[Rfam]
RNA sequence: AGAGCUGGUCAAGACAAUCGCCGCCUUGUUACCUUUUGGUUUUCAAGGGGGAGGAAAGUCCGGGCUCCAAAGGGCAGGGUGCCAGAUAACGUCUGGGCGGCGCGAGCCGACGACAAGUGCAGCAGAGAGAAGACCGCCUAAGCGCGUAAGCGCCGGUAAGGGUGAAAGGGUGCGGUAAGAGCGCACCGGGCCACUGGUAACAGUUGGUUGCAAGGUAAACUCCACCCGGAGCAAGACCAAAUAGGGUUCCUUAUGGUGCGGCCCGCAUCGGAACCGGGUAGGUUGCUUGAGCCAGUGAGCGAUUGCUGGCCUAGAUGAAUGAUUGUUAAUCUCUUUGAGAAAUACAGAACCCGGCUUAAUGACCAGCUCUAACU
Numbered sequence: 001a002g003a004g005c006u007g008g009u010c011a012a013g014a015c016a017a018u019c020g021c022c023g024c025c026u027u028g029u030u031a032c033c034u035u036u037u038g039g040u041u042u043u044c045a046a047g048g049g050g051g052a053g054g055a056a057a058g059u060c061c062g063g064g065c066u067c068c069a070a071a072g073g074g075c076a077g078g079g080u081g082c083c084a085g086a087u088a089a090c091g092u093c094u095g096g097g098c099g100g101c102g103c104g105a106g107c108c109g110a111c112g113a114c115a116a117g118u119g120c121a122g123c124a125g126a127g128a129g130a131a132g133a134c135c136g137c138c139u140a141a142g143c144g145c146g147u148a149a150g151c152g153c154c155g156g157u158a159a160g161g162g163u164g165a166a167a168g169g170g171u172g173c174g175g176u177a178a179g180a181g182c183g184c185a186c187c188g189g190g191c192c193a194c195u196g197g198u199a200a201c202a203g204u205u206g207g208u209u210g211c212a213a214g215g216u217a218a219a220c221u222c223c224a225c226c227c228g229g230a231g232c233a234a235g236a237c238c239a240a241a242u243a244g245g246g247u248u249c250c251u252u253a254u255g256g257u258g259c260g261g262c263c264c265g266c267a268u269c270g271g272a273a274c275c276g277g278g279u280a281g282g283u284u285g286c287u288u289g290a291g292c293c294a295g296u297g298a299g300c301g302a303u304u305g306c307u308g309g310c311c312u313a314g315a316u317g318a319a320u321g322a323u324u325g326u327u328a329a330u331c332u333c334u335u336u337g338a339g340a341a342a343u344a345c346a347g348a349a350c351c352c353g354g355c356u357u358a359a360u361g362a363c364c365a366g367c368u369c370u371a372a373c374u
Stems, first nucleotide, its partner, number of pairs: 001370010013327007021051002024048005056357003060354005065231004072264004077227005082096005097111001098109004112222002117220002119216002134161002136157003142153004169187006188211001189209005194203003235284004245275006255269005291310008
Source information: Rfam assigns this 374-nucleotide RNA from Aliiglaciecola lipolytica to the family "Bacterial RNase P class A". Gene Ontology terms of the family: ribonuclease P activity, dimeric ribonuclease P complex and tRNA processing. Rfam classes the family as a ribozyme. About the family: Ribonuclease P (RNase P) is a ubiquitous endoribonuclease, found in archaea, bacteria and eukarya as well as chloroplasts and mitochondria. Its best characterised activity is the generation of mature 5'-ends of tRNAs by cleaving the 5'-leader elements of precursor-tRNAs. Lineage of the source: Bacteria > Pseudomonadota > Alteromonadaceae > Aliiglaciecola > Aliiglaciecola lipolytica.